About this RNA:
The family of this 144-nucleotide RNA from Dermabacter sp. HFH0086 is "FMN riboswitch aptamer (RFN element)".
RNA sequence: CGCAUGUUCCGGGAACUCGGUGCAAUUCCGAACUGGCGGUGAAAGCCCGCUAACCCGGGCGCGUUUCACUCCGUGGGGCGAGCCUUGGGCCUGACCGGUGGAAUUCCGGUGCCGACAGUACAGUCUGGAUGGGAGGUUCAUGCG
Numbered sequence: 001c002g003c004a005u006g007u008u009c010c011g012g013g014a015a016c017u018c019g020g021u022g023c024a025a026u027u028c029c030g031a032a033c034u035g036g037c038g039g040u041g042a043a044a045g046c047c048c049g050c051u052a053a054c055c056c057g058g059g060c061g062c063g064u065u066u067c068a069c070u071c072c073g074u075g076g077g078g079c080g081a082g083c084c085u086u087g088g089g090c091c092u093g094a095c096c097g098g099u100g101g102a103a104u105u106c107c108g109g110u111g112c113c114g115a116c117a118g119u120a121c122a123g124u125c126u127g128g129a130u131g132g133g134a135g136g137u138u139c140a141u142g143c144g
Stems, first nucleotide, its partner, number of pairs: 003142004009136002018030003032124002034114002036050004045112002054089006094110005116127003
The match comes from Rfam's covariance-model search (75 bits).